[Rfam]
RNA: mir-210 microRNA precursor family
Organism: Gasterosteus aculeatus
RNA sequence: UCUAAAAGCAGGUAAGCCACUGACUAACGCACAUUGUGCCAGUGUCCAAAUUCACUGUGCGUGUGACAGCGGCUAACCUGGUUUUGGGAGCACUUCUC
Numbered sequence: 001u002c003u004a005a006a007a008g009c010a011g012g013u014a015a016g017c018c019a020c021u022g023a024c025u026a027a028c029g030c031a032c033a034u035u036g037u038g039c040c041a042g043u044g045u046c047c048a049a050a051u052u053c054a055c056u057g058u059g060c061g062u063g064u065g066a067c068a069g070c071g072g073c074u075a076a077c078c079u080g081g082u083u084u085u086g087g088g089a090g091c092a093c094u095u096c097u098c
Stems, first nucleotide, its partner, number of pairs: 005084003009080004015074004020069003024065001025063002028061006035054002